[Rfam]
RNA sequence: GAGGCCGUAUCGUCCGGCGAACGGCACUCCAAACCGGGAGUAUUUUUUAUCAAGCAUCAACACAUCGUAAUGGACAACAAUCUGCUCAGAGCCUGUGUGGACCGAGACAGAAGG
Numbered sequence: 001g002a003g004g005c006c007g008u009a010u011c012g013u014c015c016g017g018c019g020a021a022c023g024g025c026a027c028u029c030c031a032a033a034c035c036g037g038g039a040g041u042a043u044u045u046u047u048u049a050u051c052a053a054g055c056a057u058c059a060a061c062a063c064a065u066c067g068u069a070a071u072g073g074a075c076a077a078c079a080a081u082c083u084g085c086u087c088a089g090a091g092c093c094u095g096u097g098u099g100g101a102c103c104g105a106g107a108c109a110g111a112a113g114g
Stems, first nucleotide, its partner, number of pairs: 001029003004025005010020002082110003085106003089102001092100002
RNA: pan motif